[Rfam]
RNA sequence: GAGGAAAGUCCGGGCUCCGCAGGGCAGGAUGCUGGGUAAUACCCAGUGGGGGCGACCCUAAGGAUAGUGCAACAGAAAUAUACCGCCUGACACUUAAUAUAUGUAGCUAUAGAUGUUACCAUAUAUUAAGUGCCGGGUAAGGGUGGGAAGGUGAGGUAAGAGCUCACCAGCAGCUAGGCGACUAGCUGGCUCUGUAAACCCCAUCUGGAGCAAGACCAAGUUAGGGACAUAAAAAGGUGGUGGCCCGUCACCGUCCCGGUUGGUAGGUCGCUAGAGCCUAUUGGCGACAAUAGGCGUAGAUAGAUGGCUGUCUAACACAGAACCCGGCUUA
Numbered sequence: 001g002a003g004g005a006a007a008g009u010c011c012g013g014g015c016u017c018c019g020c021a022g023g024g025c026a027g028g029a030u031g032c033u034g035g036g037u038a039a040u041a042c043c044c045a046g047u048g049g050g051g052g053c054g055a056c057c058c059u060a061a062g063g064a065u066a067g068u069g070c071a072a073c074a075g076a077a078a079u080a081u082a083c084c085g086c087c088u089g090a091c092a093c094u095u096a097a098u099a100u101a102u103g104u105a106g107c108u109a110u111a112g113a114u115g116u117u118a119c120c121a122u123a124u125a126u127u128a129a130g131u132g133c134c135g136g137g138u139a140a141g142g143g144u145g146g147g148a149a150g151g152u153g154a155g156g157u158a159a160g161a162g163c164u165c166a167c168c169a170g171c172a173g174c175u176a177g178g179c180g181a182c183u184a185g186c187u188g189g190c191u192c193u194g195u196a197a198a199c200c201c202c203a204u205c206u207g208g209a210g211c212a213a214g215a216c217c218a219a220g221u222u223a224g225g226g227a228c229a230u231a232a233a234a235a236g237g238u239g240g241u242g243g244c245c246c247g248u249c250a251c252c253g254u255c256c257c258g259g260u261u262g263g264u265a266g267g268u269c270g271c272u273a274g275a276g277c278c279u280a281u282u283g284g285c286g287a288c289a290a291u292a293g294g295c296g297u298a299g300a301u302a303g304a305u306g307g308c309u310g311u312c313u314a315a316c317a318c319a320g321a322a323c324c325c326g327g328c329u330u331a
Stems, first nucleotide, its partner, number of pairs: 006330003010327005015210004022246004027206005032046005047061001048059004062201002067199002069195003083142002085138005091132013150168006170190001171188007214269004224257005237251005276295008
The family of this 331-nucleotide RNA from Eubacterium thermomarinus is "Bacterial RNase P class A". About the family: Ribonuclease P (RNase P) is a ubiquitous endoribonuclease, found in archaea, bacteria and eukarya as well as chloroplasts and mitochondria. By type it is a ribozyme. NCBI's taxonomy places the organism under Bacteria, Bacillati, Clostridia, Eubacteriaceae, Eubacterium.